The family of this 91-nucleotide RNA sequence from Colocasia esculenta is "Small nucleolar RNA R44/J54/Z268 family". Its family is annotated with RNA processing and nucleolus in the Gene Ontology. The family's RNA type in Rfam is C/D-box small nucleolar RNA. Lineage of the source: Eukaryota > Euphyllophyta > Mesangiospermae > Liliopsida > Colocasia.
RNA sequence: UUUGCAUGUGAUGAGAAACAGACAGGGACAUCUGUACUCUCGAUGAGGGGUUGAUGACUUGCGUCUUUGAUGGGAAUCUCUCUGAUGCAAA
Numbered sequence: 001u002u003u004g005c006a007u008g009u010g011a012u013g014a015g016a017a018a019c020a021g022a023c024a025g026g027g028a029c030a031u032c033u034g035u036a037c038u039c040u041c042g043a044u045g046a047g048g049g050g051u052u053g054a055u056g057a058c059u060u061g062c063g064u065c066u067u068u069g070a071u072g073g074g075a076a077u078c079u080c081u082c083u084g085a086u087g088c089a090a091a
Base pairs, nucleotide, nucleotide: 002090003089004088005087006086